[Rfam]
Rfam assigns this 47-nucleotide RNA from Marmota monax to the family "Histone 3' UTR stem-loop". Rfam links the family to the GO term mRNA 3'-end processing by stem-loop binding and cleavage. The match comes from Rfam's covariance-model search (37 bits). By type it is a cis-regulatory element. Pairs were carried over by alignment from the consensus structure, which is taken from published work.

RNA sequence: CCAAAGGCUCUUUUAAGAGCCACGCAUGAUUUUCACAAAUGAGUUGU
Numbered sequence: 001c002c003a004a005a006g007g008c009u010c011u012u013u014u015a016a017g018a019g020c021c022a023c024g025c026a027u028g029a030u031u032u033u034c035a036c037a038a039a040u041g042a043g044u045u046g047u
Stems, first nucleotide, its partner, number of pairs: 006021006